[Rfam]
RNA sequence: CCGAGCAGCCGGGGUGUUAGCGGUACCUUGAACCAACAAUCCGCUAUAGUUGGGGUGAUGCUUCGCAGAGGGUUGUAUAUGUUAGAGACGCCCUCUAUAAGUGGCGAUGAAGCUUGGGUCUUACGCAAUAGAAAUCCAUGAACCGGGUCAGGGCAGGAAUGCAGCAGCCAUAAGUGGAACCUUUUAUGUGUCGUGAGGGUGCCUGGGCGGAGUUAACUGUAGAGGUAACGGUCUAGUGUAUAGAUUCGAAGUGAAGCGCUCGU
Numbered sequence: 001c002c003g004a005g006c007a008g009c010c011g012g013g014g015u016g017u018u019a020g021c022g023g024u025a026c027c028u029u030g031a032a033c034c035a036a037c038a039a040u041c042c043g044c045u046a047u048a049g050u051u052g053g054g055g056u057g058a059u060g061c062u063u064c065g066c067a068g069a070g071g072g073u074u075g076u077a078u079a080u081g082u083u084a085g086a087g088a089c090g091c092c093c094u095c096u097a098u099a100a101g102u103g104g105c106g107a108u109g110a111a112g113c114u115u116g117g118g119u120c121u122u123a124c125g126c127a128a129u130a131g132a133a134a135u136c137c138a139u140g141a142a143c144c145g146g147g148u149c150a151g152g153g154c155a156g157g158a159a160u161g162c163a164g165c166a167g168c169c170a171u172a173a174g175u176g177g178a179a180c181c182u183u184u185u186a187u188g189u190g191u192c193g194u195g196a197g198g199g200u201g202c203c204u205g206g207g208c209g210g211a212g213u214u215a216a217c218u219g220u221a222g223a224g225g226u227a228a229c230g231g232u233c234u235a236g237u238g239u240a241u242a243g244a245u246u247c248g249a250a251g252u253g254a255a256g257c258g259c260u261c262g263u
Base pairs, nucleotide, nucleotide: 002262003261004260005259006258008056009055010054011029012028013027014026015025016024017023018022033053034052035051036050037049061256062255063254064253065252066251070247071246072245073244074243076242077241078240079239080238081237082236083235084234085233090226093224094223095222096221097220098219101217102216103214104213105212112208113207114206115205116204117203118202119201120197121196122195123194124193125192126188127187129186130185131184132183133182135178136177137176138175139174146169147168148167153162154161155160
Rfam assigns this 263-nucleotide RNA from Lachnobacterium bovis to the family "Bacterial large signal recognition particle RNA".
NCBI's taxonomy places the organism under Bacteria, Bacillati, Clostridia, Lachnospiraceae, Lachnobacterium bovis.
The family's consensus secondary structure is taken from published work.
It scores 172 bits against the family's covariance model.
From the family's description: The signal recognition particle (SRP) is a universally conserved ribonucleoprotein involved in the co-translational targeting of proteins to membranes.